[Rfam]
RNA sequence: AUUGGUAUUAUGCGGCGUAUAGUUGAUGAAAACGAAGCCGCGCGUCUGGUCGAUGAUGUGAAACAGCGGAUUCCAGGUGAACAUUGGCAAGAGCAUGGCGGGCAUGGCAUUGGCCACGAACAUCUUGCCCGAAAAGAUCAUGUUCAUGCGCUG
Numbered sequence: 001a002u003u004g005g006u007a008u009u010a011u012g013c014g015g016c017g018u019a020u021a022g023u024u025g026a027u028g029a030a031a032a033c034g035a036a037g038c039c040g041c042g043c044g045u046c047u048g049g050u051c052g053a054u055g056a057u058g059u060g061a062a063a064c065a066g067c068g069g070a071u072u073c074c075a076g077g078u079g080a081a082c083a084u085u086g087g088c089a090a091g092a093g094c095a096u097g098g099c100g101g102g103c104a105u106g107g108c109a110u111u112g113g114c115c116a117c118g119a120a121c122a123u124c125u126u127g128c129c130c131g132a133a134a135a136g137a138u139c140a141u142g143u144u145c146a147u148g149c150g151c152u153g
Stems, first nucleotide, its partner, number of pairs: 002035003006032001008030002013025003037057001039055002041052002064153005071081003089147001091145007101130002103127002106124002110119003